[Rfam]
RNA sequence: ACGCCCCUGCCGGAGCGGGCACCGGGAGCCGGAACUCCGGCUCCCGGUGCCCCCCGGCGGAUGGUCUUCCGAACCGAGGCGUCAUG
Numbered sequence: 001a002c003g004c005c006c007c008u009g010c011c012g013g014a015g016c017g018g019g020c021a022c023c024g025g026g027a028g029c030c031g032g033a034a035c036u037c038c039g040g041c042u043c044c045c046g047g048u049g050c051c052c053c054c055c056g057g058c059g060g061a062u063g064g065u066c067u068u069c070c071g072a073a074c075c076g077a078g079g080c081g082u083c084a085u086g
Base pairs, nucleotide, nucleotide: 001082002081003080004079005078010060011059012058015055017052018051019050020049024045025044026043027042028041029040030039031038032037062076063075064074
Description: This 86-nucleotide RNA sequence from Streptomyces cinnamoneus belongs to the Rfam family "dauA ncRNA motif". It scores 73 bits against the family's covariance model. The source organism's lineage runs through Bacteria, Bacillati, Actinomycetota, Streptomycetaceae and Streptomyces. The base pairs follow the family's consensus structure, which is taken from published work. Gene Ontology term of the family: regulation of gene expression. A reference for the family is Narunsky et al. (2024), "The discovery of novel noncoding RNAs in 50 bacterial genomes", Nucleic Acids Res. Rfam's curators write: dauA ncRNA motif was reported as a strong cis regulatory motif candidate, with potential to be a cis regulatory riboswitch type, it have been identified in genomes of the genus Streptomyces. Rfam classes the family as a cis-regulatory element.